[Rfam]
RNA sequence: CCAAAGGCUCUUUUAAGAGCCACUCCCCCUUUUCAUUAAAAGGGCUG
Number, nucleotide and partner (000 for none) at each position: 001c000002c000003a000004a000005a000006g021007g020008c019009u018010c017011u016012u000013u000014u000015a000016a011017g010018a009019g008020c007021c006022a000023c000024u000025c000026c000027c000028c000029c000030u000031u000032u000033u000034c000035a000036u000037u000038a000039a000040a000041a000042g000043g000044g000045c000046u000047g000
The family of this 47-nucleotide RNA sequence from Columbina picui is "Histone 3' UTR stem-loop".
Its family is annotated with mRNA 3'-end processing by stem-loop binding and cleavage in the Gene Ontology.
A search with the family's covariance model found it, with a score of 36 bits.
Rfam describes the family as follows. The mRNAs of metazoan histone genes lack a poly-A tail. 3' end processing occurs at a site between a highly conserved stem-loop (modelled by this family) and a purine rich region around 20 nts downstream (the histone downstream element, or HDE). The stem-loop is bound by a 31 kDa stem-loop binding protein (SLBP - also termed the histone hairpin binding protein, or HBP). Together with U7 snRNA binding of the HDE, SLBP binding nucleate s the formation of the processing complex.
The organism belongs to Columbina, within Eukaryota.
The family's RNA type in Rfam is cis-regulatory element.